[Rfam]
The family of this 165-nucleotide RNA sequence from Xenorhabdus szentirmaii is "SraG RNA".
The family's consensus secondary structure was predicted with PFOLD.
This RNA was discovered in E. coli during a large scale screen. Evidence was found for specific cleavage of this RNA.
The source organism's lineage runs through Bacteria, Pseudomonadota, Gammaproteobacteria, Xenorhabdus and Xenorhabdus szentirmaii.
It scores 104 bits against the family's covariance model.
For this family Rfam cites "The small RNA SraG participates in PNPase homeostasis" (Fontaine et al., RNA, 2016).

RNA sequence: CUUCUUGCUACACCCUCACGACUAAUGACAGAACUCAGUAUUCCUUAAGCACUCUCAUUAGCCGCGCGAAUCACUGUAGCGGAAGAGAUUCAGGUUUUGGAAACGGUAUCUAAAUUUCUCAAUUCCGUUUCCUAGAAGAAAAGGGGCCCGAUUAGGCCCCUUUCC
Numbered sequence: 001c002u003u004c005u006u007g008c009u010a011c012a013c014c015c016u017c018a019c020g021a022c023u024a025a026u027g028a029c030a031g032a033a034c035u036c037a038g039u040a041u042u043c044c045u046u047a048a049g050c051a052c053u054c055u056c057a058u059u060a061g062c063c064g065c066g067c068g069a070a071u072c073a074c075u076g077u078a079g080c081g082g083a084a085g086a087g088a089u090u091c092a093g094g095u096u097u098u099g100g101a102a103a104c105g106g107u108a109u110c111u112a113a114a115u116u117u118c119u120c121a122a123u124u125c126c127g128u129u130u131c132c133u134a135g136a137a138g139a140a141a142a143g144g145g146g147c148c149c150g151a152u153u154a155g156g157c158c159c160c161u162u163u164c165c
Stems, first nucleotide, its partner, number of pairs: 001085004006081002010077003017068001019066002022061007092117001143160006